[Rfam]
RNA: Purine riboswitch aptamer
RNA sequence: AUAGCAAUUAAAUAAAUUCGUCGUAUAAUCUUGAGGAUAUGGCUCUAGAGUUUCUACCGACCACCGUAAAUGGUCUGUCUACGCAGAAGAGAUAAGGAAUA
Numbered sequence: 001a002u003a004g005c006a007a008u009u010a011a012a013u014a015a016a017u018u019c020g021u022c023g024u025a026u027a028a029u030c031u032u033g034a035g036g037a038u039a040u041g042g043c044u045c046u047a048g049a050g051u052u053u054c055u056a057c058c059g060a061c062c063a064c065c066g067u068a069a070a071u072g073g074u075c076u077g078u079c080u081a082c083g084c085a086g087a088a089g090a091g092a093u094a095a096g097g098a099a100u101a
Stems, first nucleotide, its partner, number of pairs: 018087002022083004029049003033045003058077001059075005